The record is a 267-nucleotide sequence from Oxobacter pfennigii, which matches "Bacterial large signal recognition particle RNA" in Rfam. Taxonomically the source falls in Oxobacter (Bacteria, Bacillati, Clostridia, Clostridiaceae). The family is grouped with related families in Rfam's "SRP clan". Rfam describes the family as follows. The signal recognition particle (SRP) is a universally conserved ribonucleoprotein involved in the co-translational targeting of proteins to membranes. It scores 203 bits against the family's covariance model. Rfam links the family to the GO terms SRP-dependent cotranslational protein targeting to membrane, signal sequence recognition and signal recognition particle, plasma membrane targeting. The base pairs follow the family's consensus structure, which is taken from published work. It is annotated as a non-coding RNA gene.
RNA sequence: CCGUACUAGCUGGGGAGUUUGCGGUGCCCUGUAACCUGCAACCCGCAAUAGCAGGGGUGAAGUCCUAGGCUGAGGUGUAACCUUGUAAGGUCAGGCCUGUGUAAGUGGUGACGACGACUGGGUCCUGCGCAACGGAAACUUGUGAACCCCGCCAGGUCCGGAAGGAAGCAACGGUAAGCAAGCCCUUUCGUGUGCCGCAGGGUAGCCUGGUCCGAGCUAACUAUAUGGGUAACGCUUGUAAGGUUAUUAUCGAAGUUAGGUGUGCGG
Numbered sequence: 001c002c003g004u005a006c007u008a009g010c011u012g013g014g015g016a017g018u019u020u021g022c023g024g025u026g027c028c029c030u031g032u033a034a035c036c037u038g039c040a041a042c043c044c045g046c047a048a049u050a051g052c053a054g055g056g057g058u059g060a061a062g063u064c065c066u067a068g069g070c071u072g073a074g075g076u077g078u079a080a081c082c083u084u085g086u087a088a089g090g091u092c093a094g095g096c097c098u099g100u101g102u103a104a105g106u107g108g109u110g111a112c113g114a115c116g117a118c119u120g121g122g123u124c125c126u127g128c129g130c131a132a133c134g135g136a137a138a139c140u141u142g143u144g145a146a147c148c149c150c151g152c153c154a155g156g157u158c159c160g161g162a163a164g165g166a167a168g169c170a171a172c173g174g175u176a177a178g179c180a181a182g183c184c185c186u187u188u189c190g191u192g193u194g195c196c197g198c199a200g201g202g203u204a205g206c207c208u209g210g211u212c213c214g215a216g217c218u219a220a221c222u223a224u225a226u227g228g229g230u231a232a233c234g235c236u237u238g239u240a241a242g243g244u245u246a247u248u249a250u251c252g253a254a255g256u257u258a259g260g261u262g263u264g265c266g267g
Stems, first nucleotide, its partner, number of pairs: 001267006009058003012030004017025003035055005064260003068257004074251004080244010094230001097228006105221002107218003116212008124201006130192002133190005139182005149174003157166003